[Rfam]
RNA sequence: AUAUGAUGUGAUGAAAACUUGACCUUAGGCCGAUUUGUUUUGAUCGUUCUGGUCAAAUUCUUUGAUCGGUCGAUGCUAGGCCUCGUCAUAGUUACACUGAUCAUAU
Numbered sequence: 001a002u003a004u005g006a007u008g009u010g011a012u013g014a015a016a017a018c019u020u021g022a023c024c025u026u027a028g029g030c031c032g033a034u035u036u037g038u039u040u041u042g043a044u045c046g047u048u049c050u051g052g053u054c055a056a057a058u059u060c061u062u063u064g065a066u067c068g069g070u071c072g073a074u075g076c077u078a079g080g081c082c083u084c085g086u087c088a089u090a091g092u093u094a095c096a097c098u099g100a101u102c103a104u105a106u
Stems, first nucleotide, its partner, number of pairs: 001106006
The family of this 106-nucleotide RNA from Erpetoichthys calabaricus is "Small nucleolar RNA SNORD46". Rfam classes the family as a C/D-box small nucleolar RNA. Its family is annotated with RNA processing and nucleolus in the Gene Ontology.